[Rfam]
A member of the RNA family "Histone 3' UTR stem-loop" from Patiria miniata, 46 nucleotides long. By type it is a cis-regulatory element. Its family is annotated with mRNA 3'-end processing by stem-loop binding and cleavage in the Gene Ontology.
RNA sequence: CCUCCGGUUCUUUUCAGAACCACACAUAUUUACAGUUAUUUGCAGG
Numbered sequence: 001c002c003u004c005c006g007g008u009u010c011u012u013u014u015c016a017g018a019a020c021c022a023c024a025c026a027u028a029u030u031u032a033c034a035g036u037u038a039u040u041u042g043c044a045g046g
Base pairs, nucleotide, nucleotide: 006021007020008019009018010017011016

Description:
The mRNAs of metazoan histone genes lack a poly-A tail. 3' end processing occurs at a site between a highly conserved stem-loop (modelled by this family) and a purine rich region around 20 nts downstream (the histone downstream element, or HDE).